[Rfam]
RNA sequence: AAAGUAAGGGGAGCAAUAACAAAACUCUUGUUUUAUCAAGAGUUUUGUUAUUGCUCCUUUU
Numbered sequence: 001a002a003a004g005u006a007a008g009g010g011g012a013g014c015a016a017u018a019a020c021a022a023a024a025c026u027c028u029u030g031u032u033u034u035a036u037c038a039a040g041a042g043u044u045u046u047g048u049u050a051u052u053g054c055u056c057c058u059u060u061u
Base pairs, nucleotide, nucleotide: 006060007059008058010057011056012055013054014053015052016051017050018049022045023044025042026041027040028039029038030037
This 61-nucleotide RNA sequence from Aegiceras corniculatum belongs to the Rfam family "Plastid-psbA-4 3UTR RNA". By type it is a cis-regulatory element. The literature on the family includes a 2023 paper in Plant Commun by Richter et al., "Retrograde signaling in plants: A critical review focusing on the GUN pathway and beyond". Plastid psbA-4 is a non-coding RNA (ncRNA) present in plastids. It was identified in inverted repeat sequences in the 3 prime untranslate region (3UTR) of photosystem II quinone-binding protein (psbA). NCBI's taxonomy places the organism under Eukaryota, Tracheophyta, Magnoliopsida, asterids, Aegiceras.